Shown here is a 213-nucleotide sequence from Vibrio sp. MED222, a member of the family "GcvB RNA".
Gene Ontology terms of the family: regulation of gene expression and mRNA binding.
Rfam classes the family as a non-coding RNA gene.
Rfam's curators put it in the seed alignment.
About the family: The gcvB gene encodes a small untranslated RNA involved in expression of the dipeptide and oligopeptide transport systems in Escherichia coli. Included several unknown homologues in alignment (Bateman A pers obs). It base-pairs with SorC. This interaction triggers the degradation of GcvB by RNase E, alleviating the GcvB-mediated mRNA repression of other amino acid-related transport and metabolic genes.
RNA sequence: CAGCAGCUAGCCUGAACGGCUUGAUUCUCUCUAGAAUCAAUUGGUUUAGCUCCUGCGAUGUUGUGUUUGCAAACUCGUUCUUUUCGAGUUGGGUAGAGUUCUACCAAAUGUUUUGUUGCAGUUCUAUACUGAAACGAGGCAUGUACUUCCUGUAUUUAUUUUGACCUGUCUGUCAAAUUUGUUUACACCGCCUUAUGGGCGGUGUUUUUUUAU
Numbered sequence: 001c002a003g004c005a006g007c008u009a010g011c012c013u014g015a016a017c018g019g020c021u022u023g024a025u026u027c028u029c030u031c032u033a034g035a036a037u038c039a040a041u042u043g044g045u046u047u048a049g050c051u052c053c054u055g056c057g058a059u060g061u062u063g064u065g066u067u068u069g070c071a072a073a074c075u076c077g078u079u080c081u082u083u084u085c086g087a088g089u090u091g092g093g094u095a096g097a098g099u100u101c102u103a104c105c106a107a108a109u110g111u112u113u114u115g116u117u118g119c120a121g122u123u124c125u126a127u128a129c130u131g132a133a134a135c136g137a138g139g140c141a142u143g144u145a146c147u148u149c150c151u152g153u154a155u156u157u158a159u160u161u162u163g164a165c166c167u168g169u170c171u172g173u174c175a176a177a178u179u180u181g182u183u184u185a186c187a188c189c190g191c192c193u194u195a196u197g198g199g200c201g202g203u204g205u206u207u208u209u210u211u212a213u
Base pairs, nucleotide, nucleotide: 009046010045011044012043015042016041021040022039023038024037025036026035027034028033073089074088075087076086077085091129093127094126095125096124097123098122099121100120154179156177157176185205186204187203188202189201190200191199